[Rfam]
RNA: Molybdenum/Tungsten riboswitch aptamer (Moco RNA motif)
Organism: Acetohalobium arabaticum
Nucleotides: 121
Stems, first nucleotide, its partner, number of pairs: 006112001011107006019056005025051005033044003063086010088098002
Number, partner (000 for none) and nucleotide at each position: 001000g002000a003000a004000a005000u006112u007000a008000u009000u010000g011107g012106u013105c014104u015103u016102c017000g018000a019056a020055u021054c022053a023052c024000c025051u026050u027049a028048c029047c030000u031000g032000u033044g034043g035042a036000u037000g038000g039000g040000g041000u042035u043034c044033u045000a046000u047029g048028g049027u050026g051025a052023g053022u054021g055020g056019u057000c058000g059000g060000u061000a062000a063086g064085g065084u066083u067082u068081a069080a070079a071078a072077a073000g074000a075000a076000a077072u078071u079070u080069u081068u082067a083066a084065g085064c086063c087000g088098c089097c090000u091000g092000u093000g094000u095000u096000u097089g098088g099000a100000a101000a102016g103015a104014a105013g106012a107011c108000a109000g110000a111000a112006a113000u114000a115000g116000g117000g118000g119000u120000c121000a